[Rfam]
RNA sequence: CUCCUCGAAAUAUCUUUAGGGAUAGCCUGCGUGAAUGCUCGGAAUGGAGGUAGAGCACUGAUUGGAUGAGGGCCCUUACCAGGGUACUGACGCCACUCAAACUCCGAAUGCCGUUCCAGUCACACGUGGAGUCACACUGCGGGGGAUAAGCUUCGUAGUGGAAAGGGAAACAGCCCAGACCGCCAGCUAAGGCCCCAAAAGCAUGCUCAGUGCGUAAGGAUGUGAAACUGCAAAGACAGCUAGGAUGUUGGCUUAGAGGCAGCCAUCAUUUAAACAAUGCGUAACAGCUGACUAGUCGAGUGGUUUUGCGCCGAAAAUGAACGGGACUAAGCAUACUGCCGAAGCUGCGGAUUUCCCGGCGUUUGCCGGGGAGUGGUAGAGGAGCGUUGUGUGCAGGUUGAAGCGCGAAGGAAACUGACCGUGGACAGCACACAAGUGAGAAU
Numbered sequence: 001c002u003c004c005u006c007g008a009a010a011u012a013u014c015u016u017u018a019g020g021g022a023u024a025g026c027c028u029g030c031g032u033g034a035a036u037g038c039u040c041g042g043a044a045u046g047g048a049g050g051u052a053g054a055g056c057a058c059u060g061a062u063u064g065g066a067u068g069a070g071g072g073c074c075c076u077u078a079c080c081a082g083g084g085u086a087c088u089g090a091c092g093c094c095a096c097u098c099a100a101a102c103u104c105c106g107a108a109u110g111c112c113g114u115u116c117c118a119g120u121c122a123c124a125c126g127u128g129g130a131g132u133c134a135c136a137c138u139g140c141g142g143g144g145g146a147u148a149a150g151c152u153u154c155g156u157a158g159u160g161g162a163a164a165g166g167g168a169a170a171c172a173g174c175c176c177a178g179a180c181c182g183c184c185a186g187c188u189a190a191g192g193c194c195c196c197a198a199a200a201g202c203a204u205g206c207u208c209a210g211u212g213c214g215u216a217a218g219g220a221u222g223u224g225a226a227a228c229u230g231c232a233a234a235g236a237c238a239g240c241u242a243g244g245a246u247g248u249u250g251g252c253u254u255a256g257a258g259g260c261a262g263c264c265a266u267c268a269u270u271u272a273a274a275c276a277a278u279g280c281g282u283a284a285c286a287g288c289u290g291a292c293u294a295g296u297c298g299a300g301u302g303g304u305u306u307u308g309c310g311c312c313g314a315a316a317a318u319g320a321a322c323g324g325g326a327c328u329a330a331g332c333a334u335a336c337u338g339c340c341g342a343a344g345c346u347g348c349g350g351a352u353u354u355c356c357c358g359g360c361g362u363u364u365g366c367c368g369g370g371g372a373g374u375g376g377u378a379g380a381g382g383a384g385c386g387u388u389g390u391g392u393g394c395a396g397g398u399u400g401a402a403g404c405g406c407g408a409a410g411g412a413a414a415c416u417g418a419c420c421g422u423g424g425a426c427a428g429c430a431c432a433c434a435a436g437u438g439a440g441a442a443u
Stems, first nucleotide, its partner, number of pairs: 001384006011024005026131001027129007036122001039119001041117007053105001054103002059099003063095003070088002072085005135160010165176003180350004185346003191340003200337002203334004218312002222309010239296005245269003250264003270274001275290001279288002351374008385438001387435008396426001403422003409416002